[Rfam]
RNA: Glycine riboswitch aptamer
Organism: Pseudomonas sp. C27(2019)
RNA sequence: GAUUCGCCAACUGGAGAGCGGUUGCUUAAAGCAAUCCACCGAAGGGGCAAGCGGCACACUGCUGCAUAAACUCUCAGGUACACAGGACAGAGGGAGAGGC
Numbered sequence: 001g002a003u004u005c006g007c008c009a010a011c012u013g014g015a016g017a018g019c020g021g022u023u024g025c026u027u028a029a030a031g032c033a034a035u036c037c038a039c040c041g042a043a044g045g046g047g048c049a050a051g052c053g054g055c056a057c058a059c060u061g062c063u064g065c066a067u068a069a070a071c072u073c074u075c076a077g078g079u080a081c082a083c084a085g086g087a088c089a090g091a092g093g094g095a096g097a098g099g100c
Stems, first nucleotide, its partner, number of pairs: 007094002011090003020036004038079003041075002045073003051065004